[Rfam]
RNA: Small nucleolar RNA SNORD53/SNORD92
RNA sequence: CUGCUGUGAUGACUUCCAUUUGGUUUCGCUUGUGACUGAGUUUCAGAGCUGAUGCUUCUCUCUUGGCUGUCUGAGUGG
Number, nucleotide and partner (000 for none) at each position: 001c078002u077003g076004c075005u000006g000007u000008g000009a000010u000011g000012a000013c000014u000015u000016c000017c000018a000019u000020u000021u000022g000023g000024u000025u000026u000027c000028g000029c000030u000031u000032g000033u000034g000035a000036c000037u000038g000039a000040g000041u000042u000043u000044c000045a000046g000047a000048g000049c000050u000051g000052a000053u000054g000055c000056u000057u000058c000059u000060c000061u000062c000063u000064u000065g000066g000067c000068u000069g000070u000071c000072u000073g000074a000075g004076u003077g002078g001